[Rfam]
RNA sequence: CUUGAUUCUCUCGCUUGCACCGGUUCCGGUGAGCUACGGCCCUCGAGGCAGGGAGAAUUUCAUUUCCAAAGAGGC
Numbered sequence: 001c002u003u004g005a006u007u008c009u010c011u012c013g014c015u016u017g018c019a020c021c022g023g024u025u026c027c028g029g030u031g032a033g034c035u036a037c038g039g040c041c042c043u044c045g046a047g048g049c050a051g052g053g054a055g056a057a058u059u060u061c062a063u064u065u066c067c068a069a070a071g072a073g074g075c
Base pairs, nucleotide, nucleotide: 005058006057007056008055009054010053011052018031019030020029021028022027039049040048041047